[Rfam]
RNA sequence: GAUUGGUAAGAUUACGGUUUUACCAACAUGACUUGAACGAAGUUCAAGAGAGUUUGAUUCUUUCAGUCUUUGAGCUGUAAACACAUGAACAAUG
Numbered sequence: 001g002a003u004u005g006g007u008a009a010g011a012u013u014a015c016g017g018u019u020u021u022a023c024c025a026a027c028a029u030g031a032c033u034u035g036a037a038c039g040a041a042g043u044u045c046a047a048g049a050g051a052g053u054u055u056g057a058u059u060c061u062u063u064c065a066g067u068c069u070u071u072g073a074g075c076u077g078u079a080a081a082c083a084c085a086u087g088a089a090c091a092a093u094g
Stems, first nucleotide, its partner, number of pairs: 003026010064077004
RNA: RT-9 RNA